Shown here is a 219-nucleotide sequence from Nitrococcus mobilis, a member of the family "Group II catalytic intron D1-D4-6".
Lineage of the source: Bacteria > Gammaproteobacteria > Ectothiorhodospiraceae > Nitrococcus > Nitrococcus mobilis.
Rfam 15.1 lists 1,617 matches to the family in 661 species.
The literature on the family includes a 2003 paper in Crit Rev Biochem Mol Biol by Lehmann and Schmidt, "Group II introns: structure and catalytic versatility of large natural ribozymes".
Rfam's curators write: Group II introns are found in rRNA, tRNA and mRNA of organelles in fungi, plants and protists, and also in mRNA in bacteria.
Its family is annotated with Group II intron splicing in the Gene Ontology.
It is one of the family's seed sequences.
RNA sequence: CAAGUCCACGGCAGUGAAGGGUUAGCGACCCACGCUGGCCCCGAGUCAUGCGUCGAUGUCCGCGAGGACAUGGGCGAAGCGUUGACAGGGGAGCGUAUAGGCCAGCCAUUGAGCGGCGAAAAGUUUUUCUGGGGUGCCGAUGCCCUCGAAGUGGCAGAAGGCAACACGGACCGGCGCGUGAACGCGAGUGUCGGCCCGACCCUGCGUCGUCUAAGACCC
Numbered sequence: 001c002a003a004g005u006c007c008a009c010g011g012c013a014g015u016g017a018a019g020g021g022u023u024a025g026c027g028a029c030c031c032a033c034g035c036u037g038g039c040c041c042c043g044a045g046u047c048a049u050g051c052g053u054c055g056a057u058g059u060c061c062g063c064g065a066g067g068a069c070a071u072g073g074g075c076g077a078a079g080c081g082u083u084g085a086c087a088g089g090g091g092a093g094c095g096u097a098u099a100g101g102c103c104a105g106c107c108a109u110u111g112a113g114c115g116g117c118g119a120a121a122a123g124u125u126u127u128u129c130u131g132g133g134g135u136g137c138c139g140a141u142g143c144c145c146u147c148g149a150a151g152u153g154g155c156a157g158a159a160g161g162c163a164a165c166a167c168g169g170a171c172c173g174g175c176g177c178g179u180g181a182a183c184g185c186g187a188g189u190g191u192c193g194g195c196c197c198g199a200c201c202c203u204g205c206g207u208c209g210u211c212u213a214a215g216a217c218c219c
Stems, first nucleotide, its partner, number of pairs: 012037005019031004023187001025185002039091004045086004049081002051076004056071006110213001111211001113210006130204006136162003141156004167198003171194007